[Rfam]
RNA sequence: UGACCACUUCUCACCAGAAGUUAAGGCAACGGUACGCCGGGUCAAAUACCGA
Numbered sequence: 001u002g003a004c005c006a007c008u009u010c011u012c013a014c015c016a017g018a019a020g021u022u023a024a025g026g027c028a029a030c031g032g033u034a035c036g037c038c039g040g041g042u043c044a045a046a047u048a049c050c051g052a
Base pairs, nucleotide, nucleotide: 001044002043003042004041005040006021007020008019009018010017011016